Annotation
A member of the RNA family "RT-17 RNA", 95 nucleotides long.

[Rfam]
RNA sequence: CGCCCUGCCACUUGGCAAAAUAUAAAAAUACAAUGAACUAUAUUAGUAAAUUUGAGAAAUCAAAAGGUGAAAGUUUAGUUUGUAAAUGCAUACAA
Numbered sequence: 001c002g003c004c005c006u007g008c009c010a011c012u013u014g015g016c017a018a019a020a021u022a023u024a025a026a027a028a029u030a031c032a033a034u035g036a037a038c039u040a041u042a043u044u045a046g047u048a049a050a051u052u053u054g055a056g057a058a059a060u061c062a063a064a065a066g067g068u069g070a071a072a073g074u075u076u077a078g079u080u081u082g083u084a085a086a087u088g089c090a091u092a093c094a095a
Stems, first nucleotide, its partner, number of pairs: 006017004042074002049068001052063004

Rfam classes the family as a small RNA.